[Rfam]
RNA sequence: GAGAGCGGAUGUAGCCUGGUGGUUGCCCUCGUCUUCAAAACGAGUGGGCGUGGUGACGAACUGCGUCGGUGGGUUCGACUCCCAUGCGCUCUC
Number, nucleotide and partner (000 for none) at each position: 001g093002a092003g091004a090005g089006c088007g087008g000009a085010u000011g026012u025013a024014g023015c022016c021017u000018g000019g000020u000021g016022g015023u014024u013025g012026c011027c000028c044029u043030c042031g041032u040033c000034u000035u000036c000037a000038a000039a000040a032041c031042g030043a029044g028045u000046g000047g067048g066049c065050g064051u063052g000053g000054u000055g000056a000057c000058g000059a000060a000061c000062u000063g051064c050065g049066u048067c047068g000069g000070u084071g083072g082073g081074u000075u000076c000077g000078a000079c000080u000081c073082c072083c071084a070085u009086g000087c007088g006089c005090u004091c003092u002093c001
Rfam assigns this 93-nucleotide RNA sequence from Chloroflexi bacterium AL-W to the family "Selenocysteine transfer RNA". Taxonomically the source falls in Chloroflexota (Bacteria, Bacillati).